[Rfam]
RNA: drz-agam-1 ribozyme
Organism: Hermetia illucens
RNA sequence: UACUACUAAACACCUUUUUCUACCUUCAAGUGGUGAUCGCUAGUUUUUUUCUCAAUGAAAAACUUCAGACGGAGAAGG
Numbered sequence: 001u002a003c004u005a006c007u008a009a010a011c012a013c014c015u016u017u018u019u020c021u022a023c024c025u026u027c028a029a030g031u032g033g034u035g036a037u038c039g040c041u042a043g044u045u046u047u048u049u050u051c052u053c054a055a056u057g058a059a060a061a062a063c064u065u066c067a068g069a070c071g072g073a074g075a076a077g078g
Base pairs, nucleotide, nucleotide: 013078014077015076016075017074018073019072020071022034023033024032045062046061047060048059049058051057